Rfam assigns this 195-nucleotide sequence from Medicago truncatula to the family "MIR2619 microRNA precursor family". The family's consensus secondary structure was predicted with RNAalifold. NCBI's taxonomy places the organism under Eukaryota, Streptophyta, eudicotyledons, rosids, Medicago.
RNA sequence: AAACAACCCCCUAUGUAUUGGAUCUUUGACAGUUUUGACCCCCAAGACCACUUUUGACUUAGUCUUCGCUAACGUGGCACCCACAAUGGUCGACACGUGGCACCUAAGGGAUGUGGGUGCCACAUCAGAGAAGACUAACUCAAAAGUGGUCUUGGGGUCAAAACUGUCAAAGAUCCAAAACAUAGGGGGUUGUUU
Numbered sequence: 001a002a003a004c005a006a007c008c009c010c011c012u013a014u015g016u017a018u019u020g021g022a023u024c025u026u027u028g029a030c031a032g033u034u035u036u037g038a039c040c041c042c043c044a045a046g047a048c049c050a051c052u053u054u055u056g057a058c059u060u061a062g063u064c065u066u067c068g069c070u071a072a073c074g075u076g077g078c079a080c081c082c083a084c085a086a087u088g089g090u091c092g093a094c095a096c097g098u099g100g101c102a103c104c105u106a107a108g109g110g111a112u113g114u115g116g117g118u119g120c121c122a123c124a125u126c127a128g129a130g131a132a133g134a135c136u137a138a139c140u141c142a143a144a145a146g147u148g149g150u151c152u153u154g155g156g157g158u159c160a161a162a163a164c165u166g167u168c169a170a171a172g173a174u175c176c177a178a179a180a181c182a183u184a185g186g187g188g189g190u191u192g193u194u195u
Base pairs, nucleotide, nucleotide: 001195002194004192005191006190007189008188012184013183014182015181016180018178019177020176021175022174023173024172025171026170027169028168029167030166031165032164033163034162035161036160037159038158039157041156042155043154044153045152072125075122076121077120078119079118080117081116082115